[Rfam]
This 85-nucleotide RNA from Arabis alpina belongs to the Rfam family "Small nucleolar RNA R12". It is annotated as a C/D-box small nucleolar RNA. A reference for the family is Chen et al. (2003), "The high diversity of snoRNAs in plants: identification and comparative study of 120 snoRNA genes from Oryza sativa", Nucleic Acids Res. It scores 82 bits against the family's covariance model.
RNA sequence: UUCUUGAUGACGAAAGAAAUCAUUCGGAUUCCCAUUGAUUUCCUUCGGGAAAGAUGUGAUUAUUAACCAGCUACUUCUGAAAAAA
Dot-bracket structure: ((.((...........................................................................)).))
About the family: snoR12 is a C/D box small nucleolar RNA, which acts as a methylation guide for 25S ribosomal RNA in plants. snoR12 has been alternatively named snoZ44 in Arabidopsis and snoZ131 in rice.